The family of this 224-nucleotide RNA from Clostridium sartagoforme is "SAM riboswitch aptamer (S box leader)". Its family is annotated with regulation of gene expression in the Gene Ontology.
RNA sequence: ACUUUAUUAAGAAUGGUGGAGGGACUGGCCCUGUGAAACCUAGCAACCUACUAAAUAUAAUUUAGGUGUAUAAGUUGUAAAAAAGAUUAUACAUUGUAUUAAUGUAUAUUUCAUAUUAAAAAUAUUUAAAAUAUGAAGUUAUCUUAAAAGCUUAUAUAAAAAUAAACUAUAUUAGUGUGGUGCUAAAUCCUGCAAGCUUAUUUAAAUAGCUUGGUAAAUGAGGU
Numbered sequence: 001a002c003u004u005u006a007u008u009a010a011g012a013a014u015g016g017u018g019g020a021g022g023g024a025c026u027g028g029c030c031c032u033g034u035g036a037a038a039c040c041u042a043g044c045a046a047c048c049u050a051c052u053a054a055a056u057a058u059a060a061u062u063u064a065g066g067u068g069u070a071u072a073a074g075u076u077g078u079a080a081a082a083a084a085g086a087u088u089a090u091a092c093a094u095u096g097u098a099u100u101a102a103u104g105u106a107u108a109u110u111u112c113a114u115a116u117u118a119a120a121a122a123u124a125u126u127u128a129a130a131a132u133a134u135g136a137a138g139u140u141a142u143c144u145u146a147a148a149a150g151c152u153u154a155u156a157u158a159a160a161a162a163u164a165a166a167c168u169a170u171a172u173u174a175g176u177g178u179g180g181u182g183c184u185a186a187a188u189c190c191u192g193c194a195a196g197c198u199u200a201u202u203u204a205a206a207u208a209g210c211u212u213g214g215u216a217a218a219u220g221a222g223g224u
Stems, first nucleotide, its partner, number of pairs: 001224008013041001015040003021031003025192001027190002042184004047180002050176005188216001193213006